[Rfam]
RNA sequence: CCCCUUGCGACGCCGAAACGCACGGCCUAUAUCUUCCUUGUCGGGCGCAAGUCCGACUAUGGACAUAAACGCGCAUGGAAUAAGCGGAUCGGACCCGGGGGCGGUACCCGGCGACUCCACCAGAUCACCCUCGUUGGGGGGCCUUGGGGUCGAAACAGGAUCGACGAACGUCUAAAGAUGUUUGCUUUGUCUCGGUGAGCCACCACCGUUAUCGGUGCAAAAAGUACAGUUGCCAACGACAACCGUGCUCCGGUCGCUCUGGCUGCGUAAGCAGCUCGGGUAACCGAAACCUUAAGCCCUUGCGCCUAGCAGCGUAAGGCGGGGCCCGCAGGAGCCUGGCAACAGAAUCCUGCACC
Numbered sequence: 001c002c003c004c005u006u007g008c009g010a011c012g013c014c015g016a017a018a019c020g021c022a023c024g025g026c027c028u029a030u031a032u033c034u035u036c037c038u039u040g041u042c043g044g045g046c047g048c049a050a051g052u053c054c055g056a057c058u059a060u061g062g063a064c065a066u067a068a069a070c071g072c073g074c075a076u077g078g079a080a081u082a083a084g085c086g087g088a089u090c091g092g093a094c095c096c097g098g099g100g101g102c103g104g105u106a107c108c109c110g111g112c113g114a115c116u117c118c119a120c121c122a123g124a125u126c127a128c129c130c131u132c133g134u135u136g137g138g139g140g141g142c143c144u145u146g147g148g149g150u151c152g153a154a155a156c157a158g159g160a161u162c163g164a165c166g167a168a169c170g171u172c173u174a175a176a177g178a179u180g181u182u183u184g185c186u187u188u189g190u191c192u193c194g195g196u197g198a199g200c201c202a203c204c205a206c207c208g209u210u211a212u213c214g215g216u217g218c219a220a221a222a223a224g225u226a227c228a229g230u231u232g233c234c235a236a237c238g239a240c241a242a243c244c245g246u247g248c249u250c251c252g253g254u255c256g257c258u259c260u261g262g263c264u265g266c267g268u269a270a271g272c273a274g275c276u277c278g279g280g281u282a283a284c285c286g287a288a289a290c291c292u293u294a295a296g297c298c299c300u301u302g303c304g305c306c307u308a309g310c311a312g313c314g315u316a317a318g319g320c321g322g323g324g325c326c327c328g329c330a331g332g333a334g335c336c337u338g339g340c341a342a343c344a345g346a347a348u349c350c351u352g353c354a355c356c
Base pairs, nucleotide, nucleotide: 040057041056042055043054044053045052046051061192062191063190064189065188071185072184073181074180075179076178085170086169089167090166091165095111096110097109098108099107112152113151114150115149116148117147118146193208194207195206196205199218200217202216203215204214322337323336324335325334328353329352330351331350332349333348

This 356-nucleotide sequence from Paracoccus subflavus belongs to the Rfam family "Alphaproteobacteria transfer-messenger RNA". Rfam's curators write: Bacterial tmRNA, also known as 10Sa RNA or SsrA, is named for its dual tRNA and mRNA-like properties. On this family, see Williams and Bartel, RNA 1996: "Phylogenetic analysis of tmRNA secondary structure".